[Rfam]
RNA sequence: CCCGCCACUAAACCAGUCUCUGUGGCUGAGUAGAGUCCAGUGGAGGCUCAGAGCGACCCGGCUUUAGGAAACAGAACUGCCCACGUGAAUGGACGGUUCUGUGCCGAUAAGUCCGGAACAUUA
Numbered sequence: 001c002c003c004g005c006c007a008c009u010a011a012a013c014c015a016g017u018c019u020c021u022g023u024g025g026c027u028g029a030g031u032a033g034a035g036u037c038c039a040g041u042g043g044a045g046g047c048u049c050a051g052a053g054c055g056a057c058c059c060g061g062c063u064u065u066a067g068g069a070a071a072c073a074g075a076a077c078u079g080c081c082c083a084c085g086u087g088a089a090u091g092g093a094c095g096g097u098u099c100u101g102u103g104c105c106g107a108u109a110a111g112u113c114c115g116g117a118a119c120a121u122u123a
Stems, first nucleotide, its partner, number of pairs: 005043005018030003058116004062111003067105002072101006081092002
RNA: Small nucleolar RNA SNORA65
Organism: Austrofundulus limnaeus